[Rfam]
RNA sequence: ACAGGGGUAGACUUUGAUGCGUUAAGUGUGAUGGAAACGGAAUGUGGGCCAUCGACGAAGUGAAGCAGUUGCUUUACGCGAUAUCAUUGUCACAUUCACCAAU
Numbered sequence: 001a002c003a004g005g006g007g008u009a010g011a012c013u014u015u016g017a018u019g020c021g022u023u024a025a026g027u028g029u030g031a032u033g034g035a036a037a038c039g040g041a042a043u044g045u046g047g048g049c050c051a052u053c054g055a056c057g058a059a060g061u062g063a064a065g066c067a068g069u070u071g072c073u074u075u076a077c078g079c080g081a082u083a084u085c086a087u088u089g090u091c092a093c094a095u096u097c098a099c100c101a102a103u
Stems, first nucleotide, its partner, number of pairs: 001103001004100002010091003015086005020080003026056002029054006040097005060077007
RNA: THF (Tetrahydrofolate) riboswitch aptamer
Organism: Leuconostoc fallax